The record is a 90-nucleotide RNA sequence from Pelagibacterales bacterium SAG-MED15, which matches "rpsL sRNA" in Rfam. Rfam classes the family as a small RNA. A reference for the family is Meyer et al. (2009), "Identification of candidate structured RNAs in the marine organism 'Candidatus Pelagibacter ubique'", BMC Genomics. Rfam 15.1 lists 52 matches to the family in 49 species.

Nucleotides: 090
Stems, first nucleotide, its partner, number of pairs: 011085006019076006025043006047070004
Number, partner (000 for none) and nucleotide at each position: 001000u002000u003000g004000a005000c006000g007000a008000u009000a010000u011085u012084u013083u014082u015081g016080g017000u018000u019076g020075g021074a022073a023072u024071g025043u026042a027041a028040c029039a030038u031000c032000a033000u034000u035000g036000g037000g038030a039029u040028g041027u042026u043025a044000a045000a046000c047070g048069c049068u050067g051000c052000c053000a054000c055000u056000a057000a058000a059000u060000a061000a062000c063000c064000u065000g066000u067050c068049a069048g070047u071024u072023a073022u074021u075020u076019c077000u078000u079000a080016u081015c082014a083013a084012a085011a086000a087000u088000u089000u090000a
It scores 79 bits against the family's covariance model. Pairs were carried over by alignment from the consensus structure, which is taken from published work.